[Rfam]
RNA sequence: CAAGCACCUCGUUAGGUGAGGCGUCUGCACGGAUAUAGGCCACUGACCCCGAACGUCGAAAGACGCCCCGGGUCAGGACAGCUCCUCCCGGAUUAAGGGUUGAGCCCAAGUGGCUUCCGGACCUGCGUUGCAUGCGCAGGCAGGACACGCCGUGCAGUGCCGAAGCUCUGACGAGAGGGGUGCGAA
Number, nucleotide and partner (000 for none) at each position: 001c000002a000003a000004g000005c182006a181007c180008c179009u178010c177011g172012u171013u096014a000015g167016g166017u165018g000019a000020g161021g160022c159023g000024u000025c157026u156027g155028c154029a153030c152031g151032g150033a000034u000035a000036u000037a000038g000039g114040c113041c112042a111043c110044u000045g074046a073047c072048c071049c070050c000051g000052a000053a000054c065055g064056u063057c062058g000059a000060a000061a000062g057063a056064c055065g054066c000067c000068c000069c000070g049071g048072g047073u046074c045075a000076g000077g000078a000079c000080a000081g105082c104083u103084c102085c000086u000087c099088c098089c097090g000091g000092a000093u000094u000095a000096a013097g089098g088099g087100u000101u000102g084103a083104g082105c081106c000107c000108a000109a000110g043111u042112g041113g040114c039115u000116u145117c144118c143119g000120g000121a000122c000123c000124u000125g000126c000127g000128u000129u000130g000131c000132a000133u000134g000135c000136g000137c000138a000139g000140g000141c000142a000143g118144g117145a116146c000147a000148c000149g000150c032151c031152g030153u029154g028155c027156a026157g025158u000159g022160c021161c020162g000163a000164a000165g017166c016167u015168c000169u000170g000171a012172c011173g000174a000175g000176a000177g010178g009179g008180g007181u006182g005183c000184g000185a000186a000
Rfam assigns this 186-nucleotide sequence from Mycobacterium sinensis to the family "M-box riboswitch aptamer (ykoK leader)". Rfam 15.1 lists 1,095 matches to the family in 932 species.